[Rfam]
RNA: eL15-Euryarchaeota ribosomal protein leader
RNA sequence: UGGGAUAAGUAAAACCAUCCCAUGGAUGUGGCGCAAGCUGAACAAAGAG
Number, nucleotide and partner (000 for none) at each position: 001u022002g021003g020004g019005a018006u000007a000008a000009g000010u000011a000012a000013a000014a000015c000016c000017a000018u005019c004020c003021c002022a001023u045024g000025g043026a000027u000028g000029u000030g039031g038032c037033g000034c000035a000036a000037g032038c031039u030040g000041a000042a000043c025044a000045a023046a000047g000048a000049g000